Rfam assigns this 579-nucleotide RNA sequence to the family "ROOL RNA". Pairs were carried over by alignment from the consensus structure, which is taken from published work. The family's RNA type in Rfam is small RNA.
RNA sequence: GACGCUUAAUUCAGUAAAUUGGAACCCAGUGAAGAAGUGUUGACCGCACUGCUGGGGACACCUGAAGAGCAUCCGAAAUCUUGAUGGGAUACUUUCAAGUAUCGGGCGCAAAAUCGGUAACGAUUAGCGAUAGCGGAGAAACUCCAAAUGCUAAGGGUGGGCGCUAUUAUAUCUAGUUGUAAACGCACGAUUCCUUUCGGCGGGACAAUAGAAAGCCUGGUGAAUAGCUAGGCCGAAUCCAGAUAAGGGUUUAGCUGGUGACUGUAUCAAACUCUGGAAACACCAACAACUCGCUACUGUCGAUGAAAGCCAGAAAUGGCAUAUAAGAAAGGUUUACGGUACUCGCAGGUCAAGACAGCAAGUUCAAUGGAACAAUUCUAGAAAAGAAUUAUUGAUUGAUUAAUUGCUGAAUGGUUUGGCUCGGAGUUCAAGGUAAGCAGUCCUUGUCUAGCUAGGCGAAAGCAGGCAUAGAAAGUGAUUGGGUCGCUCCCAACGCUCAGCUCUAUGUUUCUAGGUUGCGGAAUAUGCGAUGGGGAUAUAAUAGUAAGGAGAAACACCUCAAAUUUAUUGAAUUAGGCG
Numbered sequence: 001g002a003c004g005c006u007u008a009a010u011u012c013a014g015u016a017a018a019u020u021g022g023a024a025c026c027c028a029g030u031g032a033a034g035a036a037g038u039g040u041u042g043a044c045c046g047c048a049c050u051g052c053u054g055g056g057g058a059c060a061c062c063u064g065a066a067g068a069g070c071a072u073c074c075g076a077a078a079u080c081u082u083g084a085u086g087g088g089a090u091a092c093u094u095u096c097a098a099g100u101a102u103c104g105g106g107c108g109c110a111a112a113a114u115c116g117g118u119a120a121c122g123a124u125u126a127g128c129g130a131u132a133g134c135g136g137a138g139a140a141a142c143u144c145c146a147a148a149u150g151c152u153a154a155g156g157g158u159g160g161g162c163g164c165u166a167u168u169a170u171a172u173c174u175a176g177u178u179g180u181a182a183a184c185g186c187a188c189g190a191u192u193c194c195u196u197u198c199g200g201c202g203g204g205a206c207a208a209u210a211g212a213a214a215g216c217c218u219g220g221u222g223a224a225u226a227g228c229u230a231g232g233c234c235g236a237a238u239c240c241a242g243a244u245a246a247g248g249g250u251u252u253a254g255c256u257g258g259u260g261a262c263u264g265u266a267u268c269a270a271a272c273u274c275u276g277g278a279a280a281c282a283c284c285a286a287c288a289a290c291u292c293g294c295u296a297c298u299g300u301c302g303a304u305g306a307a308a309g310c311c312a313g314a315a316a317u318g319g320c321a322u323a324u325a326a327g328a329a330a331g332g333u334u335u336a337c338g339g340u341a342c343u344c345g346c347a348g349g350u351c352a353a354g355a356c357a358g359c360a361a362g363u364u365c366a367a368u369g370g371a372a373c374a375a376u377u378c379u380a381g382a383a384a385a386g387a388a389u390u391a392u393u394g395a396u397u398g399a400u401u402a403a404u405u406g407c408u409g410a411a412u413g414g415u416u417u418g419g420c421u422c423g424g425a426g427u428u429c430a431a432g433g434u435a436a437g438c439a440g441u442c443c444u445u446g447u448c449u450a451g452c453u454a455g456g457c458g459a460a461a462g463c464a465g466g467c468a469u470a471g472a473a474a475g476u477g478a479u480u481g482g483g484u485c486g487c488u489c490c491c492a493a494c495g496c497u498c499a500g501c502u503c504u505a506u507g508u509u510u511c512u513a514g515g516u517u518g519c520g521g522a523a524u525a526u527g528c529g530a531u532g533g534g535g536a537u538a539u540a541a542u543a544g545u546a547a548g549g550a551g552a553a554a555c556a557c558c559u560c561a562a563a564u565u566u567a568u569u570g571a572a573u574u575a576g577g578c579g
Base pairs, nucleotide, nucleotide: 007576009574011572014569017566018565020563025056026055027054028053029052036050037049038048039047040046059159060158061157062156063155072106073105074104075103076102080099081098082097083096084095086093087092107129108128109127112125113124114123115122116121135145136144137143138142168541174535178530188338189337193332194331195330196329197328198327199295200294201293202292203291204290218230219229220228221227238278239277240276241275242274243273248268249267250266252264253263254262256285257284258283259282298360299359300358302356309320310319311318312317342426348421349420350419351418352417353416406501407500408499409498429518431445432444433443448514449513450512451463465511466509471504474502475497477494479493480492481491482490483489547559548558549557